[Rfam]
This 117-nucleotide RNA sequence from Aminobacter sp. J15 belongs to the Rfam family "Alphaproteobacterial ar14". By type it is a small RNA. Its family is annotated with biological process involved in symbiotic interaction in the Gene Ontology. The source organism's lineage runs through Bacteria, Pseudomonadati, Alphaproteobacteria, Phyllobacteriaceae and Aminobacter.

RNA sequence: CAGCGUUACUGACGAUCUACCUCCUCCCAGAGAGUCAGUAUCGAAUGCAGAACACCUCCUCCCGUUCUGCAUUUCAGAUCAGGCCUGCCGAACCUCCUCCCUCGGCAGGCCUUUUUU
Number, nucleotide and partner (000 for none) at each position: 001c000002a000003g000004c000005g000006u000007u040008a039009c038010u000011g036012a035013c034014g000015a000016u031017c030018u000019a000020c000021c000022u000023c000024c000025u000026c000027c000028c000029a000030g017031a016032g000033a000034g013035u012036c011037a000038g009039u008040a007041u000042c000043g074044a073045a072046u071047g070048c069049a068050g067051a066052a065053c000054a000055c000056c000057u000058c000059c000060u000061c000062c000063c000064g000065u052066u051067c050068u049069g048070c047071a046072u045073u044074u043075c000076a000077g000078a000079u000080c000081a112082g111083g110084c109085c108086u107087g106088c105089c104090g103091a102092a000093c000094c000095u000096c000097c000098u000099c000100c000101c000102u091103c090104g089105g088106c087107a086108g085109g084110c083111c082112u081113u000114u000115u000116u000117u000